[Rfam]
A member of the RNA family "SAM riboswitch aptamer (S box leader)" from Flavobacterium sp. BFFFF2, 105 nucleotides long. The family is grouped with related families in Rfam's "SAM clan".
RNA sequence: UGGUUAUCACGAAAGCAGGAGGGAAUAGACCCGACGAUUGCUUAGCAACCCUAAUUUUUAUUAGAAGGUGCUACAUUCUAUCCGAAUUAACGGAACAGAUAACUC
Numbered sequence: 001u002g003g004u005u006a007u008c009a010c011g012a013a014a015g016c017a018g019g020a021g022g023g024a025a026u027a028g029a030c031c032c033g034a035c036g037a038u039u040g041c042u043u044a045g046c047a048a049c050c051c052u053a054a055u056u057u058u059u060a061u062u063a064g065a066a067g068g069u070g071c072u073a074c075a076u077u078c079u080a081u082c083c084g085a086a087u088u089a090a091c092g093g094a095a096c097a098g099a100u101a102a103c104u105c
Stems, first nucleotide, its partner, number of pairs: 002104007013043005021032003026080004044072004049068002051064004076097001081094004